[Rfam]
RNA sequence: GGUCACGAGAGUCAGCGUCAAGCCCCAGCUUGCUGACCGGCAACCCUCCCACCGCGGCGGGGUGCCCUGGGUGAAGACCUGGCCGGGACGUCGUCCGACGCCCACGGCAAGCGCGGGCC
Numbered sequence: 001g002g003u004c005a006c007g008a009g010a011g012u013c014a015g016c017g018u019c020a021a022g023c024c025c026c027a028g029c030u031u032g033c034u035g036a037c038c039g040g041c042a043a044c045c046c047u048c049c050c051a052c053c054g055c056g057g058c059g060g061g062g063u064g065c066c067c068u069g070g071g072u073g074a075a076g077a078c079c080u081g082g083c084c085g086g087g088a089c090g091u092c093g094u095c096c097g098a099c100g101c102c103c104a105c106g107g108c109a110a111g112c113g114c115g116g117g118c119c
Stems, first nucleotide, its partner, number of pairs: 001079004009038001011037006021030002039066003044062003048057002082108003086103002089100004
The family of this 119-nucleotide sequence from Kocuria rhizophila is "SAM (S-adenosyl methionine) riboswitch aptamer". Gene Ontology terms of the family: regulation of gene expression and S-adenosylmethionine metabolic process. Pairs were carried over by alignment from the consensus structure, which is taken from published work. It scores 103 bits against the family's covariance model. Clan: SAM clan. The source organism's lineage runs through Bacteria, Actinomycetota, Actinomycetes, Micrococcaceae and Kocuria rhizophila.